[Rfam]
RNA: Guanidine-I riboswitch aptamer
RNA sequence: CAAACCGCUGUCUAGGGUUCCGUUAGCUGCAUAUGGGGAUUGCCUCCUCUGAUGAAUGCUAAGCCUGGUCCGAGAGACGGCAUACAGUCGAAUAUAAGUGCUGCUGGCGCGAAUCGCUGUAUAACACGGAAGGAUAAAAGCCUGGGAGAU
Numbered sequence: 001c002a003a004a005c006c007g008c009u010g011u012c013u014a015g016g017g018u019u020c021c022g023u024u025a026g027c028u029g030c031a032u033a034u035g036g037g038g039a040u041u042g043c044c045u046c047c048u049c050u051g052a053u054g055a056a057u058g059c060u061a062a063g064c065c066u067g068g069u070c071c072g073a074g075a076g077a078c079g080g081c082a083u084a085c086a087g088u089c090g091a092a093u094a095u096a097a098g099u100g101c102u103g104c105u106g107g108c109g110c111g112a113a114u115c116g117c118u119g120u121a122u123a124a125c126a127c128g129g130a131a132g133g134a135u136a137a138a139a140g141c142c143u144g145g146g147a148g149a150u
Stems, first nucleotide, its partner, number of pairs: 007081006015071002020068002022065001023062005082122007125145001127148001131143003